This 100-nucleotide RNA sequence from Cnuella takakiae belongs to the Rfam family "SAM-I/IV (S-adenosyl methionine) riboswitch aptamer".
[Rfam]
RNA sequence: ACAAAGCAUCAGGAGUUCCCUUUUUCAAAGGGAUGCCAACCGGGCCGCAGGCUAACGGUGGACCAGUAUGCGGGCCGCAGGGUCAAAAGCUUGAACGCUU
Numbered sequence: 001a002c003a004a005a006g007c008a009u010c011a012g013g014a015g016u017u018c019c020c021u022u023u024u025u026c027a028a029a030g031g032g033a034u035g036c037c038a039a040c041c042g043g044g045c046c047g048c049a050g051g052c053u054a055a056c057g058g059u060g061g062a063c064c065a066g067u068a069u070g071c072g073g074g075c076c077g078c079a080g081g082g083u084c085a086a087a088a089g090c091u092u093g094a095a096c097g098c099u100u
Base pairs, nucleotide, nucleotide: 006071007070008069009068015034017033018032019031020030021029022028023027036061037060040058041057042056043053044052045051047096073084074083075082076081